[Rfam]
RNA sequence: UGCCACUUCAAUUCCGUAGUGCAUUGUAGUCGUUUCGAUCCAACGAUAAUAGAACCUGCAAGCACCGCGGGAGUGAGGUGGUCUC
Numbered sequence: 001u002g003c004c005a006c007u008u009c010a011a012u013u014c015c016g017u018a019g020u021g022c023a024u025u026g027u028a029g030u031c032g033u034u035u036c037g038a039u040c041c042a043a044c045g046a047u048a049a050u051a052g053a054a055c056c057u058g059c060a061a062g063c064a065c066c067g068c069g070g071g072a073g074u075g076a077g078g079u080g081g082u083c084u085c
Stems, first nucleotide, its partner, number of pairs: 006078005013071005020064003024061005
RNA: mir-932 microRNA precursor family